The record is a 60-nucleotide sequence from Methyloligella sp. GL2, which matches "sul1 RNA" in Rfam. It is annotated as a riboswitch. The match comes from Rfam's covariance-model search (46 bits).
[Rfam]
RNA sequence: AUCGGACCGGGCCUUUUGCAGGCCGGGUGGCUUGGCCGGGCGCCUAUCCCUCGGAUAACG
Numbered sequence: 001a002u003c004g005g006a007c008c009g010g011g012c013c014u015u016u017u018g019c020a021g022g023c024c025g026g027g028u029g030g031c032u033u034g035g036c037c038g039g040g041c042g043c044c045u046a047u048c049c050c051u052c053g054g055a056u057a058a059c060g
Base pairs, nucleotide, nucleotide: 006028007027008026010024011023013018036054037053038052039051040050